[Rfam]
This 67-nucleotide RNA from Sorex araneus belongs to the Rfam family "Small nucleolar RNA SNORD30". The sequence is in the family's curated seed alignment. On this family, see Tycowski et al., Nature 1996: "A mammalian gene with introns instead of exons generating stable RNA products". The family's RNA type in Rfam is C/D-box small nucleolar RNA. Lineage of the source: Eukaryota > Craniata > Dipnotetrapodomorpha > Amniota > Sorex.
Nucleotides: 067
Stems, first nucleotide, its partner, number of pairs: 021049005028044004
Number, partner (000 for none) and nucleotide at each position: 001000a002000u003000a004000u005000g006000u007000g008000a009000u010000g011000a012000c013000u014000u015000a016000c017000u018000g019000a020000a021049u022048c023047u024046c025045g026000u027000u028044c029043g030042g031041c032000u033000g034000a035000u036000g037000a038000u039000u040000u041031g042030c043029u044028g045025u046024g047023a048022g049021a050000c051000u052000c053000g054000g055000a056000a057000a058000u059000c060000u061000g062000a063000u064000u065000u066000c067000c